[Rfam]
RNA sequence: UGGACCCCGGGAAGGGAUGAUGUUCUCCUUGAGACUCAAGAAAAGGAUUCUGAGCCUCGGGCUUUGAAGGAGCCCUCUGGCCCCUGACCUUCCUCAGACGCG
Number, nucleotide and partner (000 for none) at each position: 001u000002g000003g000004a000005c000006c000007c000008c000009g094010g093011g092012a091013a090014g089015g088016g000017a000018u000019g000020a000021u000022g000023u000024u000025c000026u000027c000028c000029u000030u000031g000032a000033g000034a000035c000036u000037c000038a000039a000040g000041a000042a000043a000044a000045g000046g000047a000048u000049u000050c000051u000052g000053a000054g000055c000056c000057u000058c000059g000060g000061g000062c000063u000064u000065u000066g000067a000068a000069g000070g000071a000072g000073c000074c000075c000076u000077c000078u000079g000080g000081c000082c000083c000084c000085u000086g000087a000088c015089c014090u013091u012092c011093c010094u009095c000096a000097g000098a000099c000100g000101c000102g000
Small nucleolar RNA SNORD124: a 102-nucleotide RNA from Chinchilla lanigera. The family's consensus secondary structure was predicted with WAR. For this family Rfam cites "snoSeeker: an advanced computational package for screening of guide and orphan snoRNA genes in the human genome" (Yang et al., Nucleic Acids Res, 2006). Gene Ontology terms of the family: nucleolus and RNA processing. By type it is a C/D-box small nucleolar RNA.